[Rfam]
RNA: c-di-AMP riboswitch aptamer (ydaO/yuaA leader)
RNA sequence: GCGUGAUCACCGCCGAAUCGGCCUGUCGGGGAGCCGAACCGGGGACCCAGUGAGUUGGGGUGAAUCCGGCCCAGCGCCGGUAGGGCAGCUUCCGGCCCGAACCCGUCAGCUAACCCGGUAGGCGGUCGGAGCAUGAAGGA
Numbered sequence: 001g002c003g004u005g006a007u008c009a010c011c012g013c014c015g016a017a018u019c020g021g022c023c024u025g026u027c028g029g030g031g032a033g034c035c036g037a038a039c040c041g042g043g044g045a046c047c048c049a050g051u052g053a054g055u056u057g058g059g060g061u062g063a064a065u066c067c068g069g070c071c072c073a074g075c076g077c078c079g080g081u082a083g084g085g086c087a088g089c090u091u092c093c094g095g096c097c098c099g100a101a102c103c104c105g106u107c108a109g110c111u112a113a114c115c116c117g118g119u120a121g122g123c124g125g126u127c128g129g130a131g132c133a134u135g136a137a138g139g140a
Stems, first nucleotide, its partner, number of pairs: 011124004018037005038119006048057002058104003066080004083098004